A member of the RNA family "Metazoan signal recognition particle RNA" from Helicoverpa armigera, 296 nucleotides long. A search with the family's covariance model found it, with a score of 220 bits. The signal recognition particle (SRP) is a universally conserved ribonucleoprotein. Taxonomically the source falls in Helicoverpa (Eukaryota, Ecdysozoa, Arthropoda, Allotriocarida). Rfam links the family to the GO terms SRP-dependent cotranslational protein targeting to membrane, signal sequence recognition and signal recognition particle, endoplasmic reticulum targeting. The family has 91 seed sequences and 383,523 matches in Rfam 15.1.
RNA sequence: ACCGGGAGCGUGGCACCUCCUGUAAUCCGGCGACACGGAGGUCGGGACCGAGGGAUGGUUUGAGGUCCGGAACCCUGCCGCUUAGUGGCCCAUGUUGACUGGACGUCCACACUAAGCCUGGUAUAGACAUGGACCCCCAGGAGGAGUCCGGGGGGUGCAGGUCGACUGAGGAGGGGCGAAUCGGGCCAGGGGGGAAACCCAGCAGCCAAAAGUCCCCGUAUCGGGCAGUAGCGGGAUAGCGGCCGGGAGUGGGCGCUUGGUGGCGGCCUGACCAAUAUAACCAGACCCGUUCCUUU
Dot-bracket structure: ((((((((........)))))....(((........)))))).((((.((.(...(((((...((((.((....((((((((.((((.(((((.(...((((.(((((.(.(((.(((((((((.(((.((.((((((.(((....))).)))))).)).)))..(...)..(((((......(((....(((....)))....)))....))))).)))))))))..))).)))...))).))))).))))))))).)))))))))).)))).....)))))..).)).))))..

Pairs were carried over by alignment from the consensus structure, which is taken from published work.